[Rfam]
RNA: U1 spliceosomal RNA
Organism: Myotis brandtii
RNA sequence: AUACGUAUGUGGCAGGGGAGAUACCAUGAUCAUGAAGGUGGUUUUCCCAGGGCGAGGCUUAUCCAUUGCACUCCGGAUGUGCGGACUCUUGCAAUUUCCCCAAAUGUGGGAAACUCAACAGCAUAAUUUGUUGUAGUGGGGAACUGUGUUCUCACUCUCCCCUA
Numbered sequence: 001a002u003a004c005g006u007a008u009g010u011g012g013c014a015g016g017g018g019a020g021a022u023a024c025c026a027u028g029a030u031c032a033u034g035a036a037g038g039u040g041g042u043u044u045u046c047c048c049a050g051g052g053c054g055a056g057g058c059u060u061a062u063c064c065a066u067u068g069c070a071c072u073c074c075g076g077a078u079g080u081g082c083g084g085a086c087u088c089u090u091g092c093a094a095u096u097u098c099c100c101c102a103a104a105u106g107u108g109g110g111a112a113a114c115u116c117a118a119c120a121g122c123a124u125a126a127u128u129u130g131u132u133g134u135a136g137u138g139g140g141g142a143a144c145u146g147u148g149u150u151c152u153c154a155c156u157c158u159c160c161c162c163u164a
Stems, first nucleotide, its partner, number of pairs: 012122002015119001016048006023042005049090004054086001057082002060079005094115001095113003099109002138162004143158001146155003